[Rfam]
RNA sequence: CGAGUGGUUUAGGUAGUUUCAUGUUGUUGGGUCCAUUUCUAACUCUGCAACAUGAAACUGUCUUAAUUGCCCA
Numbered sequence: 001c002g003a004g005u006g007g008u009u010u011a012g013g014u015a016g017u018u019u020c021a022u023g024u025u026g027u028u029g030g031g032u033c034c035a036u037u038u039c040u041a042a043c044u045c046u047g048c049a050a051c052a053u054g055a056a057a058c059u060g061u062c063u064u065a066a067u068u069g070c071c072c073a
Base pairs, nucleotide, nucleotide: 004070005069006068007067008066009065011063012062013061014060015059016058017057018056019055022052023051024050025049026048027047029045030044031043
A member of the RNA family "mir-196 microRNA precursor family" from Dissostichus mawsoni, 73 nucleotides long. The source organism's lineage runs through Eukaryota, Chordata, Actinopteri, Perciformes and Dissostichus. The family's consensus secondary structure was predicted with PFOLD. The match comes from Rfam's covariance-model search (67 bits).